This 223-nucleotide RNA sequence from Sporomusa malonica belongs to the Rfam family "T-box leader". The source organism's lineage runs through Bacteria, Bacillati, Negativicutes, Selenomonadales and Sporomusa.
[Rfam]
Nucleotides: 223
Stems, first nucleotide, its partner, number of pairs: 007100002015095004026082005035073001037071001047069006103127002106124004129141003159180007185220004196216007
Number, partner (000 for none) and nucleotide at each position: 001000a002000u003000a004000a005000c006000g007100g008099c009000u010000a011000a012000g013000a014000a015095u016094g017093g018092a019000a020000a021000a022000g023000u024000a025000u026082g027081c028080u029079u030078g031000u032000c033000u034000g035073c036000u037071g038000u039000u040000u041000a042000g043000a044000g045000a046000u047069g048068g049067a050066g051065c052064c053000c054000u055000c056000g057000g058000c059000u060000g061000a062000a063000a064052g065051g066050c067049u068048u069047c070000u071037c072000u073035g074000c075000g076000u077000g078030c079029a080028a081027g082026c083000u084000g085000a086000a087000g088000g089000u090000c091000a092018u093017c094016c095015a096000g097000g098000a099008g100007c101000c102000g103127c104126c105000u106124c107123g108122c109121u110000g111000a112000a113000u114000u115000g116000u117000a118000g119000u120000a121109g122108g123107c124106g125000c126104g127103g128000c129141c130140g131139a132000a133000u134000u135000u136000g137000c138000c139131u140130c141129g142000u143000u144000a145000c146000g147000g148000c149000a150000u151000g152000u153000c154000a155000a156000g157000u158000g159180u160179c161178u162177g163176g164175c165174u166000c167000a168000a169000g170000u171000g172000u173000g174165a175164g176163c177162c178161g179160g180159a181000a182000a183000u184000a185220a186219a187218g188217g189000u190000g191000g192000u193000a194000c195000c196216g197215c198214g199213g200212a201211a202210g203000c204000u205000a206000a207000g208000c209000c210202c211201u212200u213199u214198c215197g216196u217188c218187c219186u220185u221000a222000u223000a